[Rfam]
RNA sequence: CACGAUAAAGGCAAACCGAACGUGAGUUCGGGACGCAAAGUUAUGGGUCCAUCGCCUUGCGGUGGAUUGCCAGACCGCCGAUG
Dot-bracket structure: (.((......((...((((((....))))))..[))...(((.((((((((...........))))).]))))))...))..)
Background: A member of the RNA family "c-di-GMP-I-GGC riboswitch aptamer" from Rubripirellula reticaptiva, 83 nucleotides long. A search with the family's covariance model found it, with a score of 66 bits. Rfam 15.1 lists 1,298 matches to the family in 717 species. The source organism's lineage runs through Bacteria, Planctomycetota, Planctomycetia, Pirellulaceae and Rubripirellula.